[Rfam]
RNA: Nuclear RNase P
Organism: Apiotrichum porosum
RNA sequence: GCAGUCUCAAGGUCACAAUGCUCGCCACACACGGCAGUCUAGCUCGUCUAGCACAGCCUCACUCGCGAGCGGGAUAAGGUCCUGGCAUUCUAGCCCCCAUCUAUCGGUCCCAAAGGACCCGCGCGUAAUCCCCCUUUUCCGCGCGUCGCGCUCGACCAGAAAUGCGCCACCGCAGAGCGUGUCGAUUCCGGUCGUCACUCCCAGAGAAGCGCACCACUGUCUCUUCCUCAACGCAAGUUGAGGAAGAAAGGAGGGGUCGCUGAGGGUAUGCUCGUGCGGACGGCUUGGUAUGAGCGUGGGAGCUGCCUCGUGCCGCGUCGUUUGAUCUCUAGGCAGAGACUUGUCUUUCGCCUCGUGGGUCUCUCGGUCCAGCUCUGGUCAUGCGCAAGCGUGAUUUCAACCUGGAAGCGCCCAAUGCCUUUGCUUGGGCCCCGGCACCAGAGGCUUUAGUGCAAUUUGGUGACGUUUUCAUACCAGCUUGCUGGUUAAACCGCUCUCGAUUCUUAUGAGGGAGCGGGGAGAUAACUCGAUCAGGACUACUCUGGGUCUGC
Number, nucleotide and partner (000 for none) at each position: 001g551002c550003a549004g548005u000006c000007u545008c544009a543010a000011g000012g464013u463014c462015a461016c459017a458018a457019u000020g070021c069022u068023c067024g066025c000026c000027a000028c000029a000030c000031a000032c000033g000034g057035c056036a000037g054038u053039c000040u000041a000042g000043c000044u000045c000046g000047u000048c000049u000050a000051g000052c000053a038054c037055a000056g035057c034058c000059u000060c000061a000062c000063u000064c000065g000066c024067g023068a022069g021070c020071g000072g000073g000074a000075u000076a000077a000078g000079g000080u000081c535082c534083u533084g532085g531086c000087a000088u000089u000090c000091u000092a000093g303094c302095c000096c300097c000098c000099a000100u000101c000102u000103a000104u000105c000106g119107g118108u117109c116110c115111c000112a000113a000114a000115g110116g109117a108118c107119c106120c145121g144122c143123g142124c141125g140126u000127a000128a000129u000130c000131c000132c000133c000134c000135u000136u000137u000138u000139c000140c125141g124142c123143g122144c121145g120146u000147c298148g297149c296150g295151c294152u293153c000154g000155a000156c000157c000158a000159g000160a000161a000162a000163u000164g000165c000166g284167c283168c282169a000170c000171c000172g000173c000174a000175g000176a000177g000178c000179g000180u000181g000182u000183c000184g000185a000186u000187u000188c000189c000190g000191g000192u000193c000194g000195u000196c000197a000198c000199u000200c000201c000202c000203a000204g000205a000206g000207a000208a000209g000210c000211g000212c000213a000214c000215c000216a000217c000218u000219g000220u000221c000222u000223c000224u000225u000226c000227c000228u000229c000230a000231a000232c000233g000234c000235a000236a000237g000238u000239u000240g000241a000242g000243g000244a000245a000246g000247a000248a000249a000250g000251g000252a000253g000254g000255g000256g000257u000258c000259g000260c000261u000262g000263a000264g000265g000266g000267u000268a000269u000270g000271c000272u000273c000274g000275u000276g000277c000278g000279g000280a000281c000282g168283g167284c166285u000286u000287g000288g000289u000290a000291u000292g000293a152294g151295c150296g149297u148298g147299g000300g096301a000302g094303c093304u000305g000306c000307c000308u000309c000310g000311u000312g000313c000314c000315g000316c000317g000318u000319c000320g000321u000322u000323u000324g000325a000326u000327c000328u000329c000330u000331a000332g000333g000334c000335a000336g000337a000338g000339a000340c000341u000342u000343g000344u000345c000346u000347u000348u000349c000350g000351c000352c000353u000354c000355g000356u000357g000358g000359g000360u000361c000362u000363c000364u000365c000366g000367g000368u000369c000370c000371a000372g000373c000374u000375c000376u000377g000378g000379u000380c000381a000382u000383g000384c000385g000386c000387a000388a000389g000390c000391g000392u000393g000394a000395u000396u000397u000398c000399a000400a000401c000402c000403u000404g000405g000406a000407a000408g000409c000410g000411c000412c000413c000414a000415a000416u000417g000418c000419c000420u000421u000422u000423g000424c000425u000426u000427g000428g000429g000430c000431c000432c000433c000434g000435g000436c000437a000438c000439c000440a000441g000442a000443g000444g000445c000446u000447u000448u000449a000450g000451u000452g000453c000454a000455a000456u000457u018458u017459g016460g000461u015462g014463a013464c012465g523466u522467u521468u520469u519470c518471a000472u000473a000474c000475c000476a000477g000478c000479u000480u000481g000482c000483u000484g000485g000486u000487u000488a000489a000490a000491c000492c000493g000494c000495u000496c000497u000498c000499g000500a000501u000502u000503c000504u000505u000506a000507u000508g000509a000510g000511g000512g000513a000514g000515c000516g000517g000518g470519g469520a468521g467522a466523u465524a000525a000526c000527u000528c000529g000530a000531u085532c084533a083534g082535g081536a000537c000538u000539a000540c000541u000542c000543u009544g008545g007546g000547u000548c004549u003550g002551c001